This 46-nucleotide RNA sequence from a Chloroflexales bacterium belongs to the Rfam family "Acido-Lenti-1 RNA".
The family's RNA type in Rfam is small RNA.
The source organism's lineage runs through Bacteria, Bacillati, Chloroflexota, Chloroflexia and Chloroflexales.
[Rfam]
RNA sequence: CCUGGGGCUGAAGCCCCAGGCUGCUAUGCAAAGCCCCUGUGGGGCU
Numbered sequence: 001c002c003u004g005g006g007g008c009u010g011a012a013g014c015c016c017c018a019g020g021c022u023g024c025u026a027u028g029c030a031a032a033g034c035c036c037c038u039g040u041g042g043g044g045c046u
Base pairs, nucleotide, nucleotide: 001020002019003018004017005016006015007014008013033045034044035043036042037041

Pairs were carried over by alignment from the consensus structure, which is taken from published work. The match comes from Rfam's covariance-model search (37 bits).